[Rfam]
RNA: OmrA-B family
Organism: Buttiauxella agrestis
RNA sequence: CCCAGAGGUAUUGAUUGGUGAGAAUUCUAGUUACGUUGUUAAGUAAAUUCUUUGCACCGACCUGCGCAGAUGCGCAGGUUUUUUUU
Numbered sequence: 001c002c003c004a005g006a007g008g009u010a011u012u013g014a015u016u017g018g019u020g021a022g023a024a025u026u027c028u029a030g031u032u033a034c035g036u037u038g039u040u041a042a043g044u045a046a047a048u049u050c051u052u053u054g055c056a057c058c059g060a061c062c063u064g065c066g067c068a069g070a071u072g073c074g075c076a077g078g079u080u081u082u083u084u085u086u
Base pairs, nucleotide, nucleotide: 016059017058018057019056020055021048028045029044031042032041033040060079061078062077063076064075065074066073067072
Dot-bracket structure: ...............((((((......((.(((......))).))..)......)))))((((((((....)))))))).......